[Rfam]
RNA sequence: ACGAUUCGCUAGGGGAGCGCAAGCUGAGAUUGUGUGAAAGCCAGACAUCUUUUACACUAACCCUCAUUACUUGAACCGGAUAAUACCGGCGUAGGGAAGCAGAUUUUUAUAAAU
Number, nucleotide and partner (000 for none) at each position: 001a000002c000003g000004a000005u000006u102007c000008g100009c099010u098011a064012g063013g062014g061015g000016a058017g024018c023019g000020c000021a000022a000023g018024c017025u000026g000027a000028g000029a000030u000031u000032g057033u056034g055035u054036g053037a052038a051039a050040g049041c000042c000043a000044g000045a000046c000047a000048u000049c040050u039051u038052u037053u036054a035055c034056a033057c032058u016059a000060a000061c014062c013063c012064u011065c000066a000067u000068u000069a000070c095071u094072u093073g092074a000075a000076c089077c088078g087079g086080a000081u000082a000083a000084u000085a000086c079087c078088g077089g076090c000091g000092u073093a072094g071095g070096g000097a000098a010099g009100c008101a000102g006103a000104u000105u000106u000107u000108u000109a000110u000111a000112a000113a000114u000